[Rfam]
RNA sequence: GAGCUGGGUUUAUUUAAUGGACCCACGGGUCAGCAAUGGCCCGUUAAAAACUGGGUGAAUUGCAAGGAUCUCCUACCAGGGGUGGGCAUAAAAGCCCACGUCAUCUUUUGGGAUGACAAAGCUGGGGACAAUUUGCAGCGAAGCCUUCACCAACAUUUUAUCGGUGGAGGAACGUUCAACGACUAGGUGGUGAGUUAUGUUAACAAUAAUCCACCCAAGAGCGCCCAGCCCCUGAACCCGUCGGACGAUGGGCUUGAAGGGUGAUGACAUAGUCUGAGCCGUUUAGUAAUAAGCGG
Number, nucleotide and partner (000 for none) at each position: 001g000002a000003g000004c000005u025006g024007g023008g022009u021010u020011u019012a018013u017014u000015u000016a000017a013018u012019g011020g010021a009022c008023c007024c006025a005026c000027g000028g000029g040030u039031c038032a000033g000034c000035a000036a000037u000038g031039g030040c029041c000042c000043g000044u000045u000046a000047a000048a000049a000050a000051c228052u227053g226054g225055g000056u223057g222058a000059a000060u000061u137062g136063c135064a134065a133066g132067g000068a000069u000070c000071u128072c127073c126074u125075a000076c000077c000078a000079g000080g000081g000082g000083u000084g000085g000086g000087c000088a000089u000090a000091a000092a000093a000094g000095c000096c000097c000098a000099c000100g000101u000102c000103a000104u000105c000106u000107u000108u000109u000110g000111g000112g000113a000114u000115g000116a000117c000118a000119a000120a000121g000122c000123u000124g000125g074126g073127g072128a071129c000130a000131a000132u066133u065134u064135g063136c062137a061138g175139c174140g000141a000142a000143g000144c169145c000146u167147u000148c000149a165150c164151c163152a000153a161154c000155a000156u000157u000158u000159u000160a000161u153162c000163g151164g150165u149166g000167g146168a000169g144170g000171a000172a000173c000174g139175u138176u000177c000178a000179a275180c000181g274182a273183c272184u271185a270186g000187g000188u000189g000190g000191u000192g000193a000194g000195u000196u000197a000198u000199g000200u000201u000202a000203a000204c000205a000206a000207u000208a000209a000210u000211c000212c000213a000214c000215c000216c000217a000218a000219g000220a000221g000222c057223g056224c000225c054226c053227a052228g051229c000230c261231c260232c259233u258234g000235a000236a000237c000238c000239c000240g000241u000242c000243g000244g000245a000246c000247g000248a000249u000250g000251g000252g000253c000254u000255u000256g000257a000258a233259g232260g231261g230262u000263g000264a000265u000266g000267a000268c000269a000270u185271a184272g183273u182274c181275u179276g000277a000278g000279c000280c000281g294282u293283u292284u291285a290286g000287u000288a000289a000290u285291a284292a283293g282294c281295g000296g000

A member of the RNA family "Group I catalytic intron" from Powellomyces hirtus, 296 nucleotides long. The family's consensus secondary structure is taken from published work. The organism belongs to Powellomyces, within Eukaryota. Group I catalytic introns are large self-splicing ribozymes. They catalyse their own excision from mRNA, tRNA and rRNA precursors in a wide range of organisms. The core secondary structure consists of 9 paired regions (P1-P9). These fold to essentially two domains - the P4-P6 domain (formed from the stacking of P5, P4, P6 and P6a helices) and the P3-P9 domain (formed from the P8, P3, P7 and P9 helices). The secondary structure mark-up for this family represents only this conserved core. Group I catalytic introns often have long ORFs inserted in loop regions. The window size for this search is chosen to minimise search time and catch the small examples. A larger window size will find more matches. Rfam links the family to the GO term Group I intron splicing.